[Rfam]
RNA sequence: UCGGAUAUGGUGUAAUGGCUAACAUUAUCGCCUCUCAAGUUUCUGAGUGAUCGCGAUAGCUCGGGGUUCGAUUCCCCGUAUCCGAA
Numbered sequence: 001u002c003g004g005a006u007a008u009g010g011u012g013u014a015a016u017g018g019c020u021a022a023c024a025u026u027a028u029c030g031c032c033u034c035u036c037a038a039g040u041u042u043c044u045g046a047g048u049g050a051u052c053g054c055g056a057u058a059g060c061u062c063g064g065g066g067u068u069c070g071a072u073u074c075c076c077c078g079u080a081u082c083c084g085a086a
Stems, first nucleotide, its partner, number of pairs: 001085007010025004027057005062078005
RNA: tRNA